[Rfam]
Shown here is a 367-nucleotide RNA sequence from Serinibacter salmoneus, a member of the family "Bacterial RNase P class A". It scores 296 bits against the family's covariance model. Pairs were carried over by alignment from the consensus structure, which is taken from published work. The source organism's lineage runs through Bacteria, Actinomycetota, Micrococcales, Beutenbergiaceae and Serinibacter.
RNA sequence: UGAGUCGGCCAGGCGACCGCGUUCCCUUCGGGGACCGAGGAACGUCCGGGCUCCACAGGGCAGGGUGGUGGCUAACGGCCACCCGGGGUGACCCGCGGGACAGUGCCACAGAAAACAGACCGCCCCUCGCAGCGCGGGGGGUAAGGGUGAAACGGUGCGGUAAGAGCGCACCAGCGCGGCGGGUGACCGCCGCGGCUCGGUAAACCCCACCCGGAGCAAGGCCAGACAGGGAGUGAGUCGCCCGCUCAACGCUCCCGGGUAGGCCGCUGGAGGCACGCGGCAACGCGUGUCGUAGAUGGAUGGUCGCCGUUCGCCGCCGGGUAACCGGCGGCGUUCACAGAACCCGGCGUAUCGGCCGACUCAUCCA
Dot-bracket structure: ((((((((((((((((((.((.((((....)))).))....[[[.[[[[[((((...[[[[.((((((((((.....)))))(((((....)))).)((...(((((............(((((((((((...)))))))))..)).......((((((.......)))))).(((((((((....)))))))).)..)))..)))))))))))))...((((......(((((((((.]]]])))))...))))......))))......((((((((....))))))))..........)))))))..................................]]]]]]]].).))))))))))....